[Rfam]
Nucleotides: 090
Base pairs, nucleotide, nucleotide: 002089003088006085007084009082010081011080012079013078014077015076016075017074018073019072020071021070023068024067025066026065027064028063029062030061031060032059034057035056037054038053039052040051
Number, partner (000 for none) and nucleotide at each position: 001000u002089g003088g004000u005000a006085u007084g008000a009082a010081g011080g012079u013078a014077a015076u016075a017074c018073c019072u020071u021070a022000a023068u024067g025066c026065c027064u028063c029062a030061u031060a032059c033000a034057u035056a036000c037054a038053u039052a040051u041000a042000u043000a044000u045000a046000u047000a048000u049000a050000u051040a052039u053038a054037u055000g056035u057034a058000u059032g060031u061030a062029u063028g064027a065026g066025g067024c068023a069000u070021u071020a072019a073018g074017g075016u076015a077014u078013u079012a080011c081010c082009u083000u084007c085006a086000u087000a088003c089002c090000a

A member of the RNA family "mir-1684 microRNA precursor family" from Sapajus apella, 90 nucleotides long. The match comes from Rfam's covariance-model search (68 bits). Gene Ontology terms of the family: RISC complex and miRNA-mediated post-transcriptional gene silencing. The family's consensus secondary structure was predicted with RNAalifold. Lineage of the source: Eukaryota > Bilateria > Deuterostomia > Eutheria > Sapajus.